[Rfam]
Description
c-di-AMP riboswitch aptamer (ydaO/yuaA leader): a 138-nucleotide sequence from Desulfosporosinus cupriresistens. The source organism's lineage runs through Bacteria, Bacillota, Clostridia, Eubacteriales and Desulfosporosinus.

RNA sequence: AGAAAAUCAAAGCUGAAUCUAGGCUUGCCUAGAGCGGGGGGUAUUUUUAUGGGGUGAAACGCGUACUCUACGCGUAGGGCUUUACACCUUGUUGCCCAAAUCCGUCAACUAACCUCGUAAGCUAAGAAAGGUGAAAAA
Number, nucleotide and partner (000 for none) at each position: 001a000002g000003a000004a000005a000006a000007u000008c000009a000010a000011a123012g122013c121014u120015g000016a000017a000018u033019c032020u031021a030022g029023g000024c000025u000026u000027g000028c000029c022030u021031a020032g019033a018034g118035c117036g116037g115038g114039g113040g000041g000042u051043a050044u000045u000046u000047u000048u000049a000050u043051g042052g103053g102054g101055u000056g000057a000058a000059a000060c074061g073062c072063g071064u000065a000066c000067u000068c000069u000070a000071c063072g062073c061074g060075u000076a000077g097078g096079g095080c094081u000082u000083u000084a000085c000086a000087c000088c000089u000090u000091g000092u000093u000094g080095c079096c078097c077098a000099a000100a000101u054102c053103c052104g000105u000106c000107a000108a000109c000110u000111a000112a000113c039114c038115u037116c036117g035118u034119a000120a014121g013122c012123u011124a000125a000126g000127a000128a000129a000130g000131g000132u000133g000134a000135a000136a000137a000138a000